[Rfam]
This 112-nucleotide sequence from Mycetocola lacteus belongs to the Rfam family "TPP riboswitch aptamer (THI element)". The family's consensus secondary structure is taken from published work. It scores 59 bits against the family's covariance model. The source organism's lineage runs through Bacteria, Bacillati, Actinomycetota, Micrococcales and Mycetocola. Rfam's curators write: Vitamin B(1) in its active form thiamin pyrophosphate (TPP) is an essential coenzyme that is synthesised by coupling of pyrimidine and thiazole moieties in bacteria. Rfam links the family to the GO term thiamine pyrophosphate binding.
Nucleotides: 112
Base pairs, nucleotide, nucleotide: 007099008098010096011062012061013060014059017034018033019032020031021030041056042055043054044053045052067092068091069090070089073086074085075084076083
Number, partner (000 for none) and nucleotide at each position: 001000u002000c003000g004000g005000g006000g007099u008098a009000a010096c011062a012061c013060g014059g015000g016000a017034g018033u019032c020031c021030g022000g023000g024000a025000u026000c027000c028000a029000c030021u031020g032019g033018g034017c035000u036000g037000a038000g039000a040000g041056g042055a043054a044053g045052g046000u047000a048000c049000g050000u051000a052045c053044c054043u055042u056041c057000g058000a059014c060013c061012g062011u063000c064000a065000a066000a067092c068091c069090u070089g071000a072000u073086c074085u075084g076083g077000a078000u079000c080000a081000u082000g083076c084075c085074a086073g087000c088000g089070c090069a091068g092067g093000g094000a095000g096010g097000a098008u099007a100000a101000g102000u103000u104000u105000c106000u107000c108000u109000a110000a111000c112000c